A member of the RNA family "CRISPR RNA direct repeat element" from Ceuthmochares aereus, 28 nucleotides long.
Taxonomically the source falls in Ceuthmochares (Eukaryota, Dinosauria, Saurischia, Neognathae).
The match comes from Rfam's covariance-model search (36 bits).

RNA sequence: CUUCCAUACUUUCUAGUAAUUCUUAGAA
Numbered sequence: 001c002u003u004c005c006a007u008a009c010u011u012u013c014u015a016g017u018a019a020u021u022c023u024u025a026g027a028a
Base pairs, nucleotide, nucleotide: 007018008017009016010015